6C RNA: a 74-nucleotide sequence from Amycolatopsis acidiphila. The literature on the family includes a 2007 paper in Nucleic Acids Res by Weinberg et al., "Identification of 22 candidate structured RNAs in bacteria using the CMfinder comparative genomics pipeline". The family's consensus secondary structure is taken from published work. The family's RNA type in Rfam is cis-regulatory element.
[Rfam]
RNA sequence: CCUGGUUCAGCCCGACCCCCCGGGGCUGAACCGCUGGCGGCCCCCGUCCCUCCCCCUGGCGGGGGUCGCCUCCU
Numbered sequence: 001c002c003u004g005g006u007u008c009a010g011c012c013c014g015a016c017c018c019c020c021c022g023g024g025g026c027u028g029a030a031c032c033g034c035u036g037g038c039g040g041c042c043c044c045c046g047u048c049c050c051u052c053c054c055c056c057u058g059g060c061g062g063g064g065g066u067c068g069c070c071u072c073c074u
Base pairs, nucleotide, nucleotide: 003033004032005031006030007029008028009027010026011025012024013023036070037069038068039067040066041065042064043063044062045061046060047059048058

Description
Lineage of the source: Bacteria > Actinomycetota > Actinomycetes > Pseudonocardiaceae > Amycolatopsis. It scores 62 bits against the family's covariance model.